Shown here is a 76-nucleotide sequence from Laodelphax striatellus, a member of the family "mir-932 microRNA precursor family". The base pairs follow the family's consensus structure, which was predicted with RNAalifold. On this family, see Berezikov et al., Nat Genet 2010: "Evolutionary flux of canonical microRNAs and mirtrons in Drosophila".
[Rfam]
RNA sequence: CAUCGUCUCAAUUCCGUAGUGCAUUGCAGUGUUGGCAGUGAUGGUCCUGCAAGCAGUGCGGAGUUGUGCCGGUGUU
Number, nucleotide and partner (000 for none) at each position: 001c000002a000003u000004c000005g000006u000007c068008u000009c066010a065011a000012u000013u062014c061015c060016g059017u058018a000019g000020u055021g054022c053023a000024u052025u051026g050027c049028a048029g000030u000031g000032u000033u000034g000035g000036c000037a000038g000039u000040g000041a000042u000043g000044g000045u000046c000047c000048u028049g027050c026051a025052a024053g022054c021055a020056g000057u000058g017059c016060g015061g014062a013063g000064u000065u010066g009067u000068g007069c000070c000071g000072g000073u000074g000075u000076u000
About this RNA
Rfam links the family to the GO terms miRNA-mediated post-transcriptional gene silencing and RISC complex. It scores 62 bits against the family's covariance model. Lineage of the source: Eukaryota > Bilateria > Mandibulata > Pancrustacea > Laodelphax. Rfam 15.1 lists 136 matches to the family in 136 species.